[Rfam]
Nucleotides: 340
Base pairs, nucleotide, nucleotide: 040059041058042057043056044055045054046053047052063214064213065212066211067210073207074206075205076204077203078202079201088192089191090190092189093188094187098114099113100112101111102110115174116173117172118171119170120169121168215230216229217228220241222239225237226236302319303318304317305316309336310335311334312333313332314331
Number, partner (000 for none) and nucleotide at each position: 001000a002000a003000a004000c005000u006000u007000g008000c009000u010000u011000u012000u013000u014000c015000g016000g017000g018000g019000c020000c021000g022000g023000a024000a025000g026000a027000g028000u029000a030000u031000a032000a033000a034000g035000a036000a037000g038000g039000u040059g041058u042057c043056g044055g045054a046053a047052g048000u049000u050000u051000u052047c053046u054045u055044c056043c057042g058041a059040c060000u061000a062000u063214g064213a065212c066211a067210a068000u069000a070000a071000a072000c073207g074206a075205u076204a077203g078202a079201u080000g081000a082000a083000a084000u085000a086000a087000g088192u089191g090190u091000a092189g093188u094187g095000g096000a097000c098114c099113c100112g101111g102110g103000g104000g105000c106000a107000g108000u109000a110102c111101c112100c113099g114098g115174c116173g117172c118171c119170u120169c121168c122000a123000c124000c125000a126000u127000u128000a129000u130000u131000u132000u133000c134000u135000u136000c137000c138000g139000g140000u141000g142000c143000g144000c145000u146000u147000g148000c149000u150000g151000u152000g153000c154000g155000g156000a157000a158000a159000g160000a161000a162000g163000c164000u165000u166000a167000u168121g169120g170119g171118g172117g173116c174115g175000a176000a177000a178000c179000a180000g181000g182000c183000u184000c185000g186000a187094c188093a189092c190090g191089c192088a193000u194000g195000g196000u197000a198000a199000a200000g201079a202078u203077c204076u205075a206074u207073u208000u209000u210067u211066u212065g213064u214063c215230c216229g217228g218000c219000a220241u221000u222239g223000u224000a225237c226236c227000a228217c229216c230215g231000u232000u233000a234000u235000c236226g237225g238000g239222c240000u241220a242000a243000a244000c245000u246000u247000a248000c249000a250000g251000g252000u253000g254000c255000c256000a257000a258000c259000g260000a261000u262000a263000a264000c265000u266000c267000u268000g269000a270000g271000g272000u273000g274000c275000u276000c277000g278000c279000u280000g281000u282000u283000g284000c285000u286000g287000c288000a289000u290000a291000a292000g293000c294000g295000a296000u297000a298000a299000g300000c301000g302319c303318g304317g305316u306000u307000c308000g309336g310335g311334a312333g313332g314331g315000c316305a317304c318303c319302g320000g321000g322000c323000a324000a325000c326000a327000g328000a329000a330000g331314c332313c333312c334311u335310c336309c337000c338000a339000c340000u
Shown here is a 340-nucleotide RNA sequence from Oecophyllibacter saccharovorans, a member of the family "Alphaproteobacteria transfer-messenger RNA". Rfam describes the family as follows. Bacterial tmRNA, also known as 10Sa RNA or SsrA, is named for its dual tRNA and mRNA-like properties. Its role is to liberate the mRNA from a stalled ribosome. To accomplish this part of the tmRNA is used as a reading frame that ends in a translation stop signal. The broken mRNA is replaced in the ribosome by the tmRNA and translation of the tmRNA leads to addition of a proteolysis tag to the incomplete protein enabling recognition by a protease. Recently a number of permuted tmRNA genes have been found encoded in two parts. tmRNAs have been identified in eubacteria and some chloroplasts but are absent from archaeal and eukaryote nuclear genomes. Rfam classes the family as a non-coding RNA gene. Taxonomically the source falls in Oecophyllibacter (Bacteria, Alphaproteobacteria, Acetobacterales, Acetobacteraceae).